[Rfam]
RNA: SraG RNA
RNA sequence: CUUCACAUUACAUCCUCGCGACUAAUGACAAUCCUUAUCUUUUCCACUGAAAGACAAAGCCUCUCAUUAGCCGCGCGAACCUCUGUAGCGGAAGAUCCUCUUUAGAAACAACACCCAUUACCAUACUGCGUUCUUGUGUUGCUUCCUAGAAUAAAGGGGCCAAAUUUGGCCCCUUUAC
Numbered sequence: 001c002u003u004c005a006c007a008u009u010a011c012a013u014c015c016u017c018g019c020g021a022c023u024a025a026u027g028a029c030a031a032u033c034c035u036u037a038u039c040u041u042u043u044c045c046a047c048u049g050a051a052a053g054a055c056a057a058a059g060c061c062u063c064u065c066a067u068u069a070g071c072c073g074c075g076c077g078a079a080c081c082u083c084u085g086u087a088g089c090g091g092a093a094g095a096u097c098c099u100c101u102u103u104a105g106a107a108a109c110a111a112c113a114c115c116c117a118u119u120a121c122c123a124u125a126c127u128g129c130g131u132u133c134u135u136g137u138g139u140u141g142c143u144u145c146c147u148a149g150a151a152u153a154a155a156g157g158g159g160c161c162a163a164a165u166u167u168g169g170c171c172c173c174u175u176u177a178c
Stems, first nucleotide, its partner, number of pairs: 001094004006090001010086003017077004022070007101130001156173006